[Rfam]
RNA sequence: GAAUUCCCCGGAGAAUGGACUCCGGGAAGAUAAAAUAAAAAAUAAAUUAAGAUAAGUAGUAGAAAUAAACGAACAUCUUUCAA
Numbered sequence: 001g002a003a004u005u006c007c008c009c010g011g012a013g014a015a016u017g018g019a020c021u022c023c024g025g026g027a028a029g030a031u032a033a034a035a036u037a038a039a040a041a042a043u044a045a046a047u048u049a050a051g052a053u054a055a056g057u058a059g060u061a062g063a064a065a066u067a068a069a070c071g072a073a074c075a076u077c078u079u080u081c082a083a
Base pairs, nucleotide, nucleotide: 004028005027007026008025009024010023011022012021013020067080068079069078
Notes
Plastid-rpl20 3UTR RNA: an 83-nucleotide sequence. From the family's description: Plastid rpl20 is a non-coding RNA (ncRNA) recognised in plastids. It was found in the three prime untranslated region (3UTR) of rpl20 gene, it presence in the 3UTR region sugest a role in transcript maduration. Rfam 15.1 lists 587 matches to the family in 315 species. Rfam classes the family as a cis-regulatory element. The literature on the family includes a 2023 paper in Plant Commun by Richter et al., "Retrograde signaling in plants: A critical review focusing on the GUN pathway and beyond".